[Rfam]
RNA: Flavo-1 RNA
RNA sequence: GUCUAGCCCUGAUUGAAACGACAUCCUUUUUUAUUUUUCAUAAAAAAGAUAUAGUGGAAAGCAGGAAAUAGC
Numbered sequence: 001g002u003c004u005a006g007c008c009c010u011g012a013u014u015g016a017a018a019c020g021a022c023a024u025c026c027u028u029u030u031u032u033a034u035u036u037u038u039c040a041u042a043a044a045a046a047a048g049a050u051a052u053a054g055u056g057g058a059a060a061g062c063a064g065g066a067a068a069u070a071g072c
Stems, first nucleotide, its partner, number of pairs: 009064003013060002018055002023050003028046007